[Rfam]
The family of this 141-nucleotide RNA sequence from Sodalis-like symbiont of Bactericera trigonica is "Yersinia sRNA 155(RyfD)". Rfam classes the family as a small RNA. From the family's description: The sRNA was identified by and is confirmed to have a stable secondary structure by using genome-wide structure probing at different temperatures. The function is unknown. Pairs were carried over by alignment from the consensus structure.
RNA sequence: CAAGACGAUCCAGGAUGAAUAGCAAUUAUCUUCCAGCUUAUUAGCGAAAUAUCCUUGAAUUUCAAAUAAACGACCUUAUUUAAUCUCCAGAGUAGCAAUUUUAACCAAUAUGGGAGGAGUUAUGCGUCUGGAUCGUCUUAC
Numbered sequence: 001c002a003a004g005a006c007g008a009u010c011c012a013g014g015a016u017g018a019a020u021a022g023c024a025a026u027u028a029u030c031u032u033c034c035a036g037c038u039u040a041u042u043a044g045c046g047a048a049a050u051a052u053c054c055u056u057g058a059a060u061u062u063c064a065a066a067u068a069a070a071c072g073a074c075c076u077u078a079u080u081u082a083a084u085c086u087c088c089a090g091a092g093u094a095g096c097a098a099u100u101u102u103a104a105c106c107a108a109u110a111u112g113g114g115a116g117g118a119g120u121u122a123u124g125c126g127u128c129u130g131g132a133u134c135g136u137c138u139u140a141c
Base pairs, nucleotide, nucleotide: 002139003138004137005136006135007134008133009132010131011130012129014128015127016126017125019123021121022120023119026043028041029040055066056065069080070079072077084117085116086115087114088113092111093110094109